[Rfam]
RNA: Cyano-1 RNA
RNA sequence: UCUUGUGUGAGGAGAUAAAGUUACAACGAAAAAGCGCUUGGGGUCGAAACACGGCAAGACUCCCAGGCGCUUUUUCAU
Numbered sequence: 001u002c003u004u005g006u007g008u009g010a011g012g013a014g015a016u017a018a019a020g021u022u023a024c025a026a027c028g029a030a031a032a033a034g035c036g037c038u039u040g041g042g043g044u045c046g047a048a049a050c051a052c053g054g055c056a057a058g059a060c061u062c063c064c065a066g067g068c069g070c071u072u073u074u075u076c077a078u
Base pairs, nucleotide, nucleotide: 015075030074031073032072033071034070035069036068040064041063042062043060044059045058